[Rfam]
RNA sequence: UAACAUUUGCGGUGAAAUGCACUAUCGAACUAUUUAUAGGUCAAUAUGUGUGUGAGAAGGUUGGAUAAAAACCACUUUGUUAAGCCGGGGCAAUGUUUUCUGAACGACCGCAGUUCAAAGUUGCUCCGGUUUCACAAU
Dot-bracket structure: ........[[[[[...((((((.........................))))))........(((.......)))..((((.(..((((((((((......(((((.]]]]].)))))..))))))))))..).)))).
Numbered sequence: 001u002a003a004c005a006u007u008u009g010c011g012g013u014g015a016a017a018u019g020c021a022c023u024a025u026c027g028a029a030c031u032a033u034u035u036a037u038a039g040g041u042c043a044a045u046a047u048g049u050g051u052g053u054g055a056g057a058a059g060g061u062u063g064g065a066u067a068a069a070a071a072c073c074a075c076u077u078u079g080u081u082a083a084g085c086c087g088g089g090g091c092a093a094u095g096u097u098u099u100c101u102g103a104a105c106g107a108c109c110g111c112a113g114u115u116c117a118a119a120g121u122u123g124c125u126c127c128g129g130u131u132u133c134a135c136a137a138u
Stems, first nucleotide, its partner, number of pairs: 009111005017053006062074003077137004082132001085129010101117005
Rfam assigns this 138-nucleotide RNA from Providencia alcalifaciens to the family "RT-12 RNA".